[Rfam]
RNA sequence: UCCGCCAUGGACGGCGGUGGUUCAAAUGUCGAGAGUUUUGCGUAAGCAAAACUCUAAAAUGAAAAAUAUACACGGACGUAUAUUUUUCAUUAUCC
Number, nucleotide and partner (000 for none) at each position: 001u000002c017003c016004g015005c014006c013007a000008u000009g000010g000011a000012c000013g006014g005015c004016g003017g002018u000019g000020g000021u000022u000023c000024a000025a000026a000027u000028g000029u000030c000031g000032a055033g054034a053035g052036u051037u050038u049039u048040g047041c046042g000043u000044a000045a000046g041047c040048a039049a038050a037051a036052c035053u034054c033055u032056a000057a000058a091059a090060u089061g088062a087063a086064a085065a084066a083067u082068a081069u080070a079071c078072a000073c000074g000075g000076a000077c000078g071079u070080a069081u068082a067083u066084u065085u064086u063087u062088c061089a060090u059091u058092a000093u000094c000095c000
RNA: TD-2 RNA